[Rfam]
T-box leader: a 226-nucleotide sequence from Listeria monocytogenes. Rfam's curators write: Uncharged tRNA acts as the effector for transcription antitermination of genes in the T-box leader family. Pairs were carried over by alignment from the consensus structure, which is taken from published work. By type it is a cis-regulatory leader.
RNA sequence: AUGAAAACAUCAAACAAGAAUAGUACUUUUUCAUCGAUUUUUAAAGAGAGUUAGCGGUUGGUGGGAGCUAAUAAAUAGAUGAUUCAGGAAUGGGCCUUGUGCGUGAUACCUUGAAAUCAAGUAGGGGUGAACGGGUGCUCCCGUUAUAGAGCAGCUGCAAAUAUUGCAGCACGGAGAUAGGGUUUAUCCCUAAAAUGAGGUGGCACCGCGAUAACUCGUCCUCUGA
Numbered sequence: 001a002u003g004a005a006a007a008c009a010u011c012a013a014a015c016a017a018g019a020a021u022a023g024u025a026c027u028u029u030u031u032c033a034u035c036g037a038u039u040u041u042u043a044a045a046g047a048g049a050g051u052u053a054g055c056g057g058u059u060g061g062u063g064g065g066a067g068c069u070a071a072u073a074a075a076u077a078g079a080u081g082a083u084u085c086a087g088g089a090a091u092g093g094g095c096c097u098u099g100u101g102c103g104u105g106a107u108a109c110c111u112u113g114a115a116a117u118c119a120a121g122u123a124g125g126g127g128u129g130a131a132c133g134g135g136u137g138c139u140c141c142c143g144u145u146a147u148a149g150a151g152c153a154g155c156u157g158c159a160a161a162u163a164u165u166g167c168a169g170c171a172c173g174g175a176g177a178u179a180g181g182g183u184u185u186a187u188c189c190c191u192a193a194a195a196u197g198a199g200g201u202g203g204c205a206c207c208g209c210g211a212u213a214a215c216u217c218g219u220c221c222u223c224u225g226a
Base pairs, nucleotide, nucleotide: 007104008103015099016098017097018096026087027086031082039075040074041073050072051071052070053069054068055067107129108128109127110126111125112124132143133142134141178192179191180190181189182188197223198222199221200220208219209218210217211216